Molybdenum/Tungsten riboswitch aptamer (Moco RNA motif): a 138-nucleotide RNA from Neomoorella thermoacetica. A search with the family's covariance model found it, with a score of 60 bits. The base pairs follow the family's consensus structure, which is taken from published work. The source organism's lineage runs through Bacteria, Bacillati, Bacillota, Neomoorellales and Neomoorella.
RNA sequence: AAAUAGCAACAUCUCCGAGCCGGAUUAACCUAAGGAGCGAUCUAUGGUAGCCGGCCUGGGCUGCGAGGCCCACGGGGUAUACCGGGAAACGGGUAUGCCUUCCCAGGUUCGUGUAUAAGGAGGUGGCGGUUGGAUGCC
Numbered sequence: 001a002a003a004u005a006g007c008a009a010c011a012u013c014u015c016c017g018a019g020c021c022g023g024a025u026u027a028a029c030c031u032a033a034g035g036a037g038c039g040a041u042c043u044a045u046g047g048u049a050g051c052c053g054g055c056c057u058g059g060g061c062u063g064c065g066a067g068g069c070c071c072a073c074g075g076g077g078u079a080u081a082c083c084g085g086g087a088a089a090c091g092g093g094u095a096u097g098c099c100u101u102c103c104c105a106g107g108u109u110c111g112u113g114u115a116u117a118a119g120g121a122g123g124u125g126g127c128g129g130u131u132g133g134a135u136g137c138c
Base pairs, nucleotide, nucleotide: 011124012123013122014121015120016119019055020054021053022052023051025049028048029047030046034043035042036041057072058071059070060069061068075100076099077098078097079096080095081094082093083092085090101115102113